[Rfam]
RNA sequence: UCAGAAAAAACCAAACUCAUCGUGAGGUGAGGACGGAAAGCCACGGGUCUUAUACCAGAACAUAAGAUAGCCGGGUUGCCUGAA
Number, nucleotide and partner (000 for none) at each position: 001u084002c000003a081004g080005a000006a000007a000008a000009a000010a000011c036012c035013a000014a000015a000016c031017u030018c029019a028020u027021c026022g000023u000024g000025a000026g021027g020028u019029g018030a017031g016032g000033a000034c070035g012036g011037a000038a000039a077040g076041c075042c074043a000044c073045g072046g071047g068048u067049c066050u065051u064052a063053u000054a000055c000056c000057a000058g000059a000060a000061c000062a000063u052064a051065a050066g049067a048068u047069a000070g034071c046072c045073g044074g042075g041076u040077u039078g000079c000080c004081u003082g000083a000084a001
Shown here is an 84-nucleotide RNA from Candidatus Moduliflexus flocculans, a member of the family "c-di-GMP-I-GGC riboswitch aptamer". The source organism's lineage runs through Bacteria, Candidatus Moduliflexota, Candidatus Moduliflexia, Candidatus Moduliflexales and Candidatus Moduliflexus.